The family of this 67-nucleotide RNA from Pullulanibacillus camelliae is "Bacillaceae-1 RNA".

[Rfam]
RNA sequence: CACUCAGGACGAUCGGCUAAAAACGUCACGUCCUGUGACAAUGCCGACCCUACCCACAUCGUGUGGG
Numbered sequence: 001c002a003c004u005c006a007g008g009a010c011g012a013u014c015g016g017c018u019a020a021a022a023a024c025g026u027c028a029c030g031u032c033c034u035g036u037g038a039c040a041a042u043g044c045c046g047a048c049c050c051u052a053c054c055c056a057c058a059u060c061g062u063g064u065g066g067g
Stems, first nucleotide, its partner, number of pairs: 011049001013047005025039005053067005

Background:
The base pairs follow the family's consensus structure, which is taken from published work. NCBI's taxonomy places the organism under Bacteria, Bacilli, Caryophanales, Sporolactobacillaceae, Pullulanibacillus. A search with the family's covariance model found it, with a score of 63 bits.